Annotation: This 353-nucleotide sequence from Sediminispirochaeta smaragdinae belongs to the Rfam family "Bacterial RNase P class A". It scores 308 bits against the family's covariance model. It is annotated as a ribozyme. Clan: RNaseP clan.
RNA sequence: AAAGCAGGCCGGGCGGCCGCCGUUUCUUUGUGGAAAUGGAGGAAAGUCCGGGCUCCGCAGGACAGAGUGCCGGGUAAUUCCCGGGGACGAUUUUGCGUCGUCACAGAUAGUGCAACAGAAAGUAUACCGCCUAUCCGAUUUGGUUCGGAUGGGUAAGGGUGAAACGGCGGGGUAAGAGCCCACCGCCUUUCCGGCAACGGUAAGGGCACUGAAAACCUCACUCGGAGCAAAGCCAAGCAGCGGUAGGGUGGUCCGCUCGAUUCCGCGGGUAGGCUGCAUGAGAGGAUCGGUAACGGUCUUCCCAGAUAGAUGGCCGUCUAUAACAGAACCCGGCUUACAGGCCUGCUUUUUUU
Numbered sequence: 001a002a003a004g005c006a007g008g009c010c011g012g013g014c015g016g017c018c019g020c021c022g023u024u025u026c027u028u029u030g031u032g033g034a035a036a037u038g039g040a041g042g043a044a045a046g047u048c049c050g051g052g053c054u055c056c057g058c059a060g061g062a063c064a065g066a067g068u069g070c071c072g073g074g075u076a077a078u079u080c081c082c083g084g085g086g087a088c089g090a091u092u093u094u095g096c097g098u099c100g101u102c103a104c105a106g107a108u109a110g111u112g113c114a115a116c117a118g119a120a121a122g123u124a125u126a127c128c129g130c131c132u133a134u135c136c137g138a139u140u141u142g143g144u145u146c147g148g149a150u151g152g153g154u155a156a157g158g159g160u161g162a163a164a165c166g167g168c169g170g171g172g173u174a175a176g177a178g179c180c181c182a183c184c185g186c187c188u189u190u191c192c193g194g195c196a197a198c199g200g201u202a203a204g205g206g207c208a209c210u211g212a213a214a215a216c217c218u219c220a221c222u223c224g225g226a227g228c229a230a231a232g233c234c235a236a237g238c239a240g241c242g243g244u245a246g247g248g249u250g251g252u253c254c255g256c257u258c259g260a261u262u263c264c265g266c267g268g269g270u271a272g273g274c275u276g277c278a279u280g281a282g283a284g285g286a287u288c289g290g291u292a293a294c295g296g297u298c299u300u301c302c303c304a305g306a307u308a309g310a311u312g313g314c315c316g317u318c319u320a321u322a323a324c325a326g327a328a329c330c331c332g333g334c335u336u337a338c339a340g341g342c343c344u345g346c347u348u349u350u351u352u353u
Base pairs, nucleotide, nucleotide: 001349002348003347004346005345006344007343008342009341010340011338012318013317014316015315016314017313018312020039021038022037023036024035025034026033027032044336045335046334048333049332050331051330052329053227054226055225056224060254061253062252063251065223066222067221068220069219070084071083072082073081074080085104086102087101088100089099090098091097105218106217110216111215113211114210127158128157129154130153131152132151133150134149135148136147137146166184167183169181170180171179185207186205187204188203189202191200192199193198231275232274233273234272240266241265242264243263246258247257248256249255282301283300284299285298286297287296288295289294